[Rfam]
RNA sequence: CGCUCAUCCAGAGGGGCAGAGGGAACGGCCCGUUGAAGCCCCGGCAACCCUCCCGCCGACCGCGAGGUCACGCACGGUGGGGAAGGUGCCAAUUCCGUCUCGUGGCGCGCCCGCGUCCGAGGAAGAUGAGGA
Numbered sequence: 001c002g003c004u005c006a007u008c009c010a011g012a013g014g015g016g017c018a019g020a021g022g023g024a025a026c027g028g029c030c031c032g033u034u035g036a037a038g039c040c041c042c043g044g045c046a047a048c049c050c051u052c053c054c055g056c057c058g059a060c061c062g063c064g065a066g067g068u069c070a071c072g073c074a075c076g077g078u079g080g081g082g083a084a085g086g087u088g089c090c091a092a093u094u095c096c097g098u099c100u101c102g103u104g105g106c107g108c109g110c111c112c113g114c115g116u117c118c119g120a121g122g123a124a125g126a127u128g129a130g131g132a
Base pairs, nucleotide, nucleotide: 003130004129005128006127007126008125013042014041015040016039017038021031022030023029025098026097027096028095043090044089045088046087048086049085050082051081052080053079094124099121100120101119102118104116
This 132-nucleotide RNA from Actinacidiphila yanglinensis belongs to the Rfam family "SAM riboswitch aptamer (S box leader)". A search with the family's covariance model found it, with a score of 78 bits. Pairs were carried over by alignment from the consensus structure, which is taken from published work. The organism belongs to Actinacidiphila, within Bacteria.